[Rfam]
RNA sequence: UACCGAUAAGGGCAAACUUGUCGAAAGGCAAGGACGCAAAGCCACAGGGUCUAACGUUCCCCGGAACAAUGACAGCCUGGCUGCCGGA
Numbered sequence: 001u002a003c004c005g006a007u008a009a010g011g012g013c014a015a016a017c018u019u020g021u022c023g024a025a026a027g028g029c030a031a032g033g034a035c036g037c038a039a040a041g042c043c044a045c046a047g048g049g050u051c052u053a054a055c056g057u058u059c060c061c062c063g064g065a066a067c068a069a070u071g072a073c074a075g076c077c078u079g080g081c082u083g084c085c086g087g088a
Stems, first nucleotide, its partner, number of pairs: 012037002017032006040082004046078003049073003056067004